Rfam assigns this 405-nucleotide sequence from Microscilla marina to the family "Bacterial RNase P class A". By type it is a ribozyme. Clan: RNaseP clan. Rfam describes the family as follows. Ribonuclease P (RNase P) is a ubiquitous endoribonuclease, found in archaea, bacteria and eukarya as well as chloroplasts and mitochondria. Taxonomically the source falls in Microscilla marina (Bacteria, Bacteroidota, Cytophagia, Microscilla).

RNA sequence: UUUGCAAGUAACCUUAUCGCUUCCUAAUAAUAUUGGGAAGAGGAAAGUCCGGGCAACACAGAGCAUCGUACUUCCUAACAGGAAGGCUUUUGAUGGGUUAAAUCAUUAAAAGACAGAAAGUGCCACAGAAAAUAUACCGCCUUGAGCAAUCGAGGUAAGGGUGAAAUGGCGAGGUAAGAGCUCACCGCGUUUUGGGUAACUAAAACGGCAGGGUAAACCUUACGAGUUGAAAGACCAAAUAAGCAGGCAUUGUAGAGUUGGUAAACAUCAACCUCUACUGAAGGGCGGCUCGUCUUAGUUUGUGGGUAGGUCGAUGGAGUUUUUCUGCAAAGAAAGGCCUAGAUAAAUGAUAGGGAUUUUGGGAAACCAAAAAAACAGAACCCGGCUUAUAAACUUGCAUUUUCU
Numbered sequence: 001u002u003u004g005c006a007a008g009u010a011a012c013c014u015u016a017u018c019g020c021u022u023c024c025u026a027a028u029a030a031u032a033u034u035g036g037g038a039a040g041a042g043g044a045a046a047g048u049c050c051g052g053g054c055a056a057c058a059c060a061g062a063g064c065a066u067c068g069u070a071c072u073u074c075c076u077a078a079c080a081g082g083a084a085g086g087c088u089u090u091u092g093a094u095g096g097g098u099u100a101a102a103u104c105a106u107u108a109a110a111a112g113a114c115a116g117a118a119a120g121u122g123c124c125a126c127a128g129a130a131a132a133u134a135u136a137c138c139g140c141c142u143u144g145a146g147c148a149a150u151c152g153a154g155g156u157a158a159g160g161g162u163g164a165a166a167u168g169g170c171g172a173g174g175u176a177a178g179a180g181c182u183c184a185c186c187g188c189g190u191u192u193u194g195g196g197u198a199a200c201u202a203a204a205a206c207g208g209c210a211g212g213g214u215a216a217a218c219c220u221u222a223c224g225a226g227u228u229g230a231a232a233g234a235c236c237a238a239a240u241a242a243g244c245a246g247g248c249a250u251u252g253u254a255g256a257g258u259u260g261g262u263a264a265a266c267a268u269c270a271a272c273c274u275c276u277a278c279u280g281a282a283g284g285g286c287g288g289c290u291c292g293u294c295u296u297a298g299u300u301u302g303u304g305g306g307u308a309g310g311u312c313g314a315u316g317g318a319g320u321u322u323u324u325c326u327g328c329a330a331a332g333a334a335a336g337g338c339c340u341a342g343a344u345a346a347a348u349g350a351u352a353g354g355g356a357u358u359u360u361g362g363g364a365a366a367c368c369a370a371a372a373a374a375a376c377a378g379a380a381c382c383c384g385g386c387u388u389a390u391a392a393a394c395u396u397g398c399a400u401u402u403u404c405u
Stems, first nucleotide, its partner, number of pairs: 003399007011390001012355007020040009045388003049385005054229004061291004066225005071085005086114001087112010115220002120218002122214003137160002139156007168186002171183003187209001188207008233312004243303006282296005319338008